[Rfam]
RNA: tRNA
Organism: Phaeodactylum tricornutum
RNA sequence: GAUCGCGUGGCUCAAUGGUAGAGCAUUGGUCUUCGGAACCAAAGGUUGCGGGUUCGAGUCCCGCCGCGGUUA
Numbered sequence: 001g002a003u004c005g006c007g008u009g010g011c012u013c014a015a016u017g018g019u020a021g022a023g024c025a026u027u028g029g030u031c032u033u034c035g036g037a038a039c040c041a042a043a044g045g046u047u048g049c050g051g052g053u054u055c056g057a058g059u060c061c062c063g064c065c066g067c068g069g070u071u072a
Stems, first nucleotide, its partner, number of pairs: 001071007010024004026042005048064005